[Rfam]
Purine riboswitch aptamer: a 100-nucleotide RNA sequence from Clostridium sp. N3C. It scores 83 bits against the family's covariance model. The organism belongs to Clostridium, within Bacteria. For this family Rfam cites "Riboswitches Control Fundamental Biochemical Pathways in Bacillus subtilis and Other Bacteria" (Mandal et al., Cell, 2003). Rfam 15.1 lists 4,097 matches to the family in 1,411 species.
RNA sequence: GAUAAAUUUAAUAAAUUUAUCCAUAUAAUCCUGAUAAUAUGGUUCGGGAGUUUCUACAGAAAGCCAUAAACUUUCUACUAUGGGUAAAUCCUUGGGUAGU
Dot-bracket structure: .................((((((((...((((((.........))))))........((((((.......))))))..))))))))..............